[Rfam]
RNA sequence: AUGAAGAGUGCGGGAGAGAGUCUUGUAAAAGGCCGCCGAAGGGACAAACCGGUGCAUGAGCCUAGUGUAGUGGUGAAAUUUUCAGGCAAAAGAGCUGCAUUUGGACA
Numbered sequence: 001a002u003g004a005a006g007a008g009u010g011c012g013g014g015a016g017a018g019a020g021u022c023u024u025g026u027a028a029a030a031g032g033c034c035g036c037c038g039a040a041g042g043g044a045c046a047a048a049c050c051g052g053u054g055c056a057u058g059a060g061c062c063u064a065g066u067g068u069a070g071u072g073g074u075g076a077a078a079u080u081u082u083c084a085g086g087c088a089a090a091a092g093a094g095c096u097g098c099a100u101u102u103g104g105a106c107a
Base pairs, nucleotide, nucleotide: 006102007101008100009099010098011097012096013095020033021032022031023030035087036086037085038083039082042081043080044079048074049073050072051071